[Rfam]
RNA: U2 spliceosomal RNA
RNA sequence: UCAGCUCUCUUUGCCUUUUGGCUUAGAUCAAGUGUAGUAUCUGUUCUUUUCAGUUUAAUCUCUGAAAGUGUUCUACCUGAACACAACAUUGAUUAUUCUCAUUUUUGGAGUUCGCUUGAGAGUCUCUGCGCUUGCGUAUGCUCUCUCGCACUGUGUCCUUGGUCUUACACUACCAUCAAGCGACGCGAAUCCCC
Numbered sequence: 001u002c003a004g005c006u007c008u009c010u011u012u013g014c015c016u017u018u019u020g021g022c023u024u025a026g027a028u029c030a031a032g033u034g035u036a037g038u039a040u041c042u043g044u045u046c047u048u049u050u051c052a053g054u055u056u057a058a059u060c061u062c063u064g065a066a067a068g069u070g071u072u073c074u075a076c077c078u079g080a081a082c083a084c085a086a087c088a089u090u091g092a093u094u095a096u097u098c099u100c101a102u103u104u105u106u107g108g109a110g111u112u113c114g115c116u117u118g119a120g121a122g123u124c125u126c127u128g129c130g131c132u133u134g135c136g137u138a139u140g141c142u143c144u145c146u147c148g149c150a151c152u153g154u155g156u157c158c159u160u161g162g163u164c165u166u167a168c169a170c171u172a173c174c175a176u177c178a179a180g181c182g183a184c185g186c187g188a189a190u191c192c193c194c
Stems, first nucleotide, its partner, number of pairs: 008027003013022003048067006068084006114149002118145004127138004152187006158180006